[Rfam]
Annotation
The record is a 64-nucleotide sequence from Lederbergia galactosidilytica, which matches "Bacillaceae-1 RNA" in Rfam.
RNA sequence: AGAUGAGGACCAAGGGCUAAAGAGCUCGCCGUCUUAGCGAAACGCCUUUGUGACUCACAUCCUG
Numbered sequence: 001a002g003a004u005g006a007g008g009a010c011c012a013a014g015g016g017c018u019a020a021a022g023a024g025c026u027c028g029c030c031g032u033c034u035u036a037g038c039g040a041a042a043c044g045c046c047u048u049u050g051u052g053a054c055u056c057a058c059a060u061c062c063u064g
Stems, first nucleotide, its partner, number of pairs: 011050007026040004058064001
NCBI's taxonomy places the organism under Bacteria, Bacillati, Bacillota, Bacilli, Lederbergia. Pairs were carried over by alignment from the consensus structure, which is taken from published work.